The family of this 76-nucleotide RNA from Itoa orientalis is "Plastid-psbM 3UTR RNA". Rfam's curators put it in the seed alignment.

RNA sequence: GAUCCGAUAGUAUGGUAGUAAAUAGAUUACUUUCUACCAUACUAUCUAUUUUUGUUAUUCUAGUAUAUAAAGUUGU
Numbered sequence: 001g002a003u004c005c006g007a008u009a010g011u012a013u014g015g016u017a018g019u020a021a022a023u024a025g026a027u028u029a030c031u032u033u034c035u036a037c038c039a040u041a042c043u044a045u046c047u048a049u050u051u052u053u054g055u056u057a058u059u060c061u062a063g064u065a066u067a068u069a070a071a072g073u074u075g076u
Stems, first nucleotide, its partner, number of pairs: 006046013020033003